[Rfam]
RNA sequence: GUCUCUAAUGAUGAUUACCGUGUAAGCUUUCUGAAUUAAUUUUUGCUGAAAGUUAUGGAGACCUGAACUGAAGAGAC
Numbered sequence: 001g002u003c004u005c006u007a008a009u010g011a012u013g014a015u016u017a018c019c020g021u022g023u024a025a026g027c028u029u030u031c032u033g034a035a036u037u038a039a040u041u042u043u044u045g046c047u048g049a050a051a052g053u054u055a056u057g058g059a060g061a062c063c064u065g066a067a068c069u070g071a072a073g074a075g076a077c
Base pairs, nucleotide, nucleotide: 003075004074005073006072

Overview:
The record is a 77-nucleotide RNA from Apium graveolens, which matches "Small nucleolar RNA Z159/U59" in Rfam. The match comes from Rfam's covariance-model search (41 bits). Taxonomically the source falls in Apium (Eukaryota, Streptophyta, Mesangiospermae, Gunneridae). The family has 10 seed sequences and 1,401 matches in Rfam 15.1.